[Rfam]
RNA: transfer-messenger RNA
RNA sequence: GGGGGCGUUUAUGGAUUCGACGGGAAUAGUUCGAGCAUGGGUUGCGGGUAGUGGGGCUGCGUCCGCUUCAUCAACGCGAAAGCCAAUUAAAUGGCAAACAACAACAAACCUACGCUUUCGCAGCUUAAUAACCUGUGAGCGUGCUUCUACCCUCCAUCGCCCAUGUGGCGGGAUAGGGGCUCAACUUUAGUGGGAUACGCUGUCUAGUCUCCGCCUGGGGCUAGCUGAAGAAGACAAUCAGGCUGACCUGUGAGAUAGCCGGUUACGGGGCGCUCUUGCAGGUGACAUCAAAACCGUGACUACACCCGUAGAUGCCUGUGUGGCGUUAUUUUCGGACAGGGGUUCAAAUCCCCUCGCCUCCACCA
Numbered sequence: 001g002g003g004g005g006c007g008u009u010u011a012u013g014g015a016u017u018c019g020a021c022g023g024g025a026a027u028a029g030u031u032c033g034a035g036c037a038u039g040g041g042u043u044g045c046g047g048g049u050a051g052u053g054g055g056g057c058u059g060c061g062u063c064c065g066c067u068u069c070a071u072c073a074a075c076g077c078g079a080a081a082g083c084c085a086a087u088u089a090a091a092u093g094g095c096a097a098a099c100a101a102c103a104a105c106a107a108a109c110c111u112a113c114g115c116u117u118u119c120g121c122a123g124c125u126u127a128a129u130a131a132c133c134u135g136u137g138a139g140c141g142u143g144c145u146u147c148u149a150c151c152c153u154c155c156a157u158c159g160c161c162c163a164u165g166u167g168g169c170g171g172g173a174u175a176g177g178g179g180c181u182c183a184a185c186u187u188u189a190g191u192g193g194g195a196u197a198c199g200c201u202g203u204c205u206a207g208u209c210u211c212c213g214c215c216u217g218g219g220g221c222u223a224g225c226u227g228a229a230g231a232a233g234a235c236a237a238u239c240a241g242g243c244u245g246a247c248c249u250g251u252g253a254g255a256u257a258g259c260c261g262g263u264u265a266c267g268g269g270g271c272g273c274u275c276u277u278g279c280a281g282g283u284g285a286c287a288u289c290a291a292a293a294c295c296g297u298g299a300c301u302a303c304a305c306c307c308g309u310a311g312a313u314g315c316c317u318g319u320g321u322g323g324c325g326u327u328a329u330u331u332u333c334g335g336a337c338a339g340g341g342g343u344u345c346a347a348a349u350c351c352c353c354u355c356g357c358c359u360c361c362a363c364c365a
Base pairs, nucleotide, nucleotide: 001361002360003359004358005357006356007355021334022333023332024331025330026329027328028327029326030325035321036320037319038318039317040316041315042314045308046307047306048305049304051069053067054066058078059077060076061075062074117139118138119137120136121135122134123133143180144179145178146177147176148175150172151171152170154168155167156166157165160194161193162192163191164190200227202225204224205223206222207221208220213243214242215241216240217239246283247282248281249280250279251278252277253276254275255274258271259270260269262300263299264298265297267294338354339353340352341351342350